Na+ riboswitch aptamer (DUF1646): a 63-nucleotide RNA sequence. A reference for the family is White et al. (2022), "Na(+) riboswitches regulate genes for diverse physiological processes in bacteria", Nat Chem Biol.

RNA sequence: GGUUGGGCGGUGCUGCUUUUGAAGGUGCCGUUUUCAAGAAAUUUGCUUUUUGGGUGGAAAGCU
Numbered sequence: 001g002g003u004u005g006g007g008c009g010g011u012g013c014u015g016c017u018u019u020u021g022a023a024g025g026u027g028c029c030g031u032u033u034u035c036a037a038g039a040a041a042u043u044u045g046c047u048u049u050u051u052g053g054g055u056g057g058a059a060a061g062c063u
Stems, first nucleotide, its partner, number of pairs: 003037003006032009045062006